[Rfam]
RNA sequence: UAUACAUGUAAGCUGAAUCCGGUUUAUCCGGAACGGGGGAUAUAUCUAUUGGGGUGAAUCUAUUAAAAAGAGGGCUACUCUAUGGCCUAACCCGUCAACUAACCUCGUAAGCACAUAGAGGGGGAAAA
Numbered sequence: 001u002a003u004a005c006a007u008g009u010a011a012g013c014u015g016a017a018u019c020c021g022g023u024u025u026a027u028c029c030g031g032a033a034c035g036g037g038g039g040a041u042a043u044a045u046c047u048a049u050u051g052g053g054g055u056g057a058a059u060c061u062a063u064u065a066a067a068a069a070g071a072g073g074g075c076u077a078c079u080c081u082a083u084g085g086c087c088u089a090a091c092c093c094g095u096c097a098a099c100u101a102a103c104c105u106c107g108u109a110a111g112c113a114c115a116u117a118g119a120g121g122g123g124g125a126a127a128a
Stems, first nucleotide, its partner, number of pairs: 012112003018032003033108006043051002052093003060070002063067001073087004
Annotation:
c-di-AMP riboswitch aptamer (ydaO/yuaA leader): a 128-nucleotide sequence from Oxobacter pfennigii. Pairs were carried over by alignment from the consensus structure. NCBI's taxonomy places the organism under Bacteria, Bacillota, Clostridia, Clostridiaceae, Oxobacter. Rfam's curators write: This family represents a conserved RNA structure found upstream of the ydaO and yuaA genes in Bacillus subtilis and related genes in other bacteria. A search with the family's covariance model found it, with a score of 79 bits. Gene Ontology terms of the family: regulation of gene expression and cyclic-di-AMP binding.